[Rfam]
RNA sequence: CCUGUGGACUGUCAUAUCAAAUGUUAUUAGUAUGGGAAACUGUACGAGGACAGACAGGGGGAAGCAGGAA
Numbered sequence: 001c002c003u004g005u006g007g008a009c010u011g012u013c014a015u016a017u018c019a020a021a022u023g024u025u026a027u028u029a030g031u032a033u034g035g036g037a038a039a040c041u042g043u044a045c046g047a048g049g050a051c052a053g054a055c056a057g058g059g060g061g062a063a064g065c066a067g068g069a070a
Stems, first nucleotide, its partner, number of pairs: 001068005009057005022052003030045003034041002
A member of the RNA family "RAGATH-18 RNA", 70 nucleotides long.
It is annotated as a small RNA.
Pairs were carried over by alignment from the consensus structure, which is taken from published work.
From the family's description: Actinobacteria, Firmicutes, Fusobacteria, Thermotogae (1 example).
The sequence is in the family's curated seed alignment.